[Rfam]
RNA: c-di-AMP riboswitch aptamer (ydaO/yuaA leader)
RNA sequence: ACGAUGGGCCCGCUGAGUCGUGCUCGCACGAGCCGGGGAACCAAGCACAACUGGGGUGAAUCCACGAGGCGCUCCGCCUCGAGGUAGGGCGAUCUUCCCGCCCGAAUCCGUCAGCUAACCCGGUAGGCGGUUUCGGAAGGAGCA
Numbered sequence: 001a002c003g004a005u006g007g008g009c010c011c012g013c014u015g016a017g018u019c020g021u022g023c024u025c026g027c028a029c030g031a032g033c034c035g036g037g038g039a040a041c042c043a044a045g046c047a048c049a050a051c052u053g054g055g056g057u058g059a060a061u062c063c064a065c066g067a068g069g070c071g072c073u074c075c076g077c078c079u080c081g082a083g084g085u086a087g088g089g090c091g092a093u094c095u096u097c098c099c100g101c102c103c104g105a106a107u108c109c110g111u112c113a114g115c116u117a118a119c120c121c122g123g124u125a126g127g128c129g130g131u132u133u134c135g136g137a138a139g140g141a142g143c144a
Base pairs, nucleotide, nucleotide: 011129012128013127014126018031019030020029032124033123034122035121036120037119042053043052054109055108056107062084063083065081066080067079068078069077070076071075087103088102089101090100